[Rfam]
RNA: U7 small nuclear RNA
Organism: Erinaceus europaeus
RNA sequence: CAGUGUUACAACUCUUUUAGAAUUUGUCUAGCAGGUCUUCCGGUCUCUACUGGGAGUUCCCAC
Numbered sequence: 001c002a003g004u005g006u007u008a009c010a011a012c013u014c015u016u017u018u019a020g021a022a023u024u025u026g027u028c029u030a031g032c033a034g035g036u037c038u039u040c041c042g043g044u045c046u047c048u049a050c051u052g053g054g055a056g057u058u059c060c061c062a063c
Stems, first nucleotide, its partner, number of pairs: 034060002037056008